[Rfam]
Shown here is a 68-nucleotide RNA from Eleutherodactylus coqui, a member of the family "Small nucleolar RNA SNORD2".
RNA sequence: AAGUGAAAUGAUGGUAACCAUCUUUCGGGACUGACCUGAAAUGGAGAGAACUUUUUUUCUGAUCACUU
Numbered sequence: 001a002a003g004u005g006a007a008a009u010g011a012u013g014g015u016a017a018c019c020a021u022c023u024u025u026c027g028g029g030a031c032u033g034a035c036c037u038g039a040a041a042u043g044g045a046g047a048g049a050a051c052u053u054u055u056u057u058u059c060u061g062a063u064c065a066c067u068u
Stems, first nucleotide, its partner, number of pairs: 001068006
The base pairs follow the family's consensus structure, which was predicted with WAR. The organism belongs to Eleutherodactylus, within Eukaryota. Rfam links the family to the GO terms nucleolus and RNA processing. A search with the family's covariance model found it, with a score of 84 bits.